RNA sequence: UAGGGGUGUCAGGGCUUGGAUCUCCUCCCCGAACCCAGGAUAACCCUGAAAGUAGAGGGGGA
Numbered sequence: 001u002a003g004g005g006g007u008g009u010c011a012g013g014g015c016u017u018g019g020a021u022c023u024c025c026u027c028c029c030c031g032a033a034c035c036c037a038g039g040a041u042a043a044c045c046c047u048g049a050a051a052g053u054a055g056a057g058g059g060g061g062a
Stems, first nucleotide, its partner, number of pairs: 008041003012036003016031001018029002022060006